The family of this 91-nucleotide RNA from Bacillaceae bacterium SAS-127 is "Glycine riboswitch aptamer". Rfam describes the family as follows. This family represents the bacterial glycine riboswitch. The match comes from Rfam's covariance-model search (70 bits). The source organism's lineage runs through Bacteria, Bacillati, Bacillota, Caryophanales and Bacillaceae.
RNA sequence: AUGAAAGCAAGGGGAGAGACCGGAUGCGCGGCGCCGAAGGAGCAAACAAGUUAUUUGUGAAUCUCUCAGGCAAAAGAACUCUUGCUGGACG
Number, nucleotide and partner (000 for none) at each position: 001a000002u000003g000004a000005a000006a086007g085008c084009a083010a082011g081012g080013g079014g000015a000016g000017a000018g000019a000020c031021c030022g029023g000024a000025u000026g000027c000028g000029c022030g021031g020032c000033g071034c070035c069036g067037a066038a000039g000040g065041a064042g063043c000044a000045a000046a058047c057048a056049a055050g000051u000052u000053a000054u000055u049056u048057g047058u046059g000060a000061a000062u000063c042064u041065c040066u037067c036068a000069g035070g034071c033072a000073a000074a000075a000076g000077a000078a000079c013080u012081c011082u010083u009084g008085c007086u006087g000088g000089a000090c000091g000